[Rfam]
RNA sequence: GCCCUGGUGGUGUAGCUUGGAUAACACGUGGGACUGCGGAUCCCAUUCCCCGGGUUCAAAUCCCGGCCAGGGCA
Numbered sequence: 001g002c003c004c005u006g007g008u009g010g011u012g013u014a015g016c017u018u019g020g021a022u023a024a025c026a027c028g029u030g031g032g033a034c035u036g037c038g039g040a041u042c043c044c045a046u047u048c049c050c051c052g053g054g055u056u057c058a059a060a061u062c063c064c065g066g067c068c069a070g071g072g073c074a
Stems, first nucleotide, its partner, number of pairs: 001073007010027004029045005050066005